[Rfam]
RNA sequence: UUUUUCCACUAGGGGCGCGUAUGACGCUGAGAUAAAGAUUUUUCUUUGGUCCCUUUGAACCUGAUUAGGUUAGUACCUACGUAGGAAAGUGGAGCAUUUCUUAU
Numbered sequence: 001u002u003u004u005u006c007c008a009c010u011a012g013g014g015g016c017g018c019g020u021a022u023g024a025c026g027c028u029g030a031g032a033u034a035a036a037g038a039u040u041u042u043u044c045u046u047u048g049g050u051c052c053c054u055u056u057g058a059a060c061c062u063g064a065u066u067a068g069g070u071u072a073g074u075a076c077c078u079a080c081g082u083a084g085g086a087a088a089g090u091g092g093a094g095c096a097u098u099u100c101u102u103a104u
Stems, first nucleotide, its partner, number of pairs: 006092005011054004016048001017027004034047005060085004066079004
This 104-nucleotide RNA from Amphibacillus xylanus belongs to the Rfam family "TPP riboswitch aptamer (THI element)". The source organism's lineage runs through Bacteria, Bacilli, Caryophanales, Bacillaceae and Amphibacillus xylanus. Pairs were carried over by alignment from the consensus structure, which is taken from published work. The match comes from Rfam's covariance-model search (86 bits).